[Rfam]
RNA sequence: UUUCGAUAAUGGCAAACCCGAUGAAAAUCGGGGACGCAAAGUCAGCGGGUCUAAGGUGAGAAAUCAUGAUGACAGCCGGACUACCGAA
Numbered sequence: 001u002u003u004c005g006a007u008a009a010u011g012g013c014a015a016a017c018c019c020g021a022u023g024a025a026a027a028u029c030g031g032g033g034a035c036g037c038a039a040a041g042u043c044a045g046c047g048g049g050u051c052u053a054a055g056g057u058g059a060g061a062a063a064u065c066a067u068g069a070u071g072a073c074a075g076c077c078g079g080a081c082u083a084c085c086g087a088a
Stems, first nucleotide, its partner, number of pairs: 012037002017032006040082004046078003049073003056067004
Source information:
c-di-GMP-I riboswitch aptamer: an 88-nucleotide sequence from Anaerosolibacter carboniphilus.